[Rfam]
RNA sequence: AAAGCAGAUCGCCUUAUCGCUGCUUCGCUUAGGUGAAGUAGAGGAAAGUCCGGACACCAUAGGGCAGCAUAGUGGGUAACGCCCACCGGUCGAAAGAUCAGGACAAGUGCAGCAGAAAGUAUGUACAGGUAAUGCUGUAGUGAAACCAGGUAAACUCUAUGCGGUGCAAUGCCAUGUAUACCAGCUUUUAAGGGCGGCUCGCUCGUUGUUGGAGGGUAGGCAGCUAAAGAUUUUUGGCAACAAAAAUUUCAGAUAAAUGAUAAGGAUCUUAGUUUUACUGAGAUACAGAAUCCGGCUUAUAGAUCUGCUUUUUUA
Numbered sequence: 001a002a003a004g005c006a007g008a009u010c011g012c013c014u015u016a017u018c019g020c021u022g023c024u025u026c027g028c029u030u031a032g033g034u035g036a037a038g039u040a041g042a043g044g045a046a047a048g049u050c051c052g053g054a055c056a057c058c059a060u061a062g063g064g065c066a067g068c069a070u071a072g073u074g075g076g077u078a079a080c081g082c083c084c085a086c087c088g089g090u091c092g093a094a095a096g097a098u099c100a101g102g103a104c105a106a107g108u109g110c111a112g113c114a115g116a117a118a119g120u121a122u123g124u125a126c127a128g129g130u131a132a133u134g135c136u137g138u139a140g141u142g143a144a145a146c147c148a149g150g151u152a153a154a155c156u157c158u159a160u161g162c163g164g165u166g167c168a169a170u171g172c173c174a175u176g177u178a179u180a181c182c183a184g185c186u187u188u189u190a191a192g193g194g195c196g197g198c199u200c201g202c203u204c205g206u207u208g209u210u211g212g213a214g215g216g217u218a219g220g221c222a223g224c225u226a227a228a229g230a231u232u233u234u235u236g237g238c239a240a241c242a243a244a245a246a247u248u249u250c251a252g253a254u255a256a257a258u259g260a261u262a263a264g265g266a267u268c269u270u271a272g273u274u275u276u277a278c279u280g281a282g283a284u285a286c287a288g289a290a291u292c293c294g295g296c297u298u299a300u301a302g303a304u305c306u307g308c309u310u311u312u313u314u315a
Stems, first nucleotide, its partner, number of pairs: 001311010011300001012265007020041009046298003050295005055166004062200004067162005072086005087101001088099004102157002107155002109151002124139005170222004181212005192204004229248008
About this RNA: Shown here is a 315-nucleotide RNA from Gillisia sp. Hel1_33_143, a member of the family "Bacterial RNase P class A". A reference for the family is Frank and Pace (1998), "Ribonuclease P: unity and diversity in a tRNA processing ribozyme", Annu Rev Biochem. By type it is a ribozyme. The family's consensus secondary structure is taken from published work.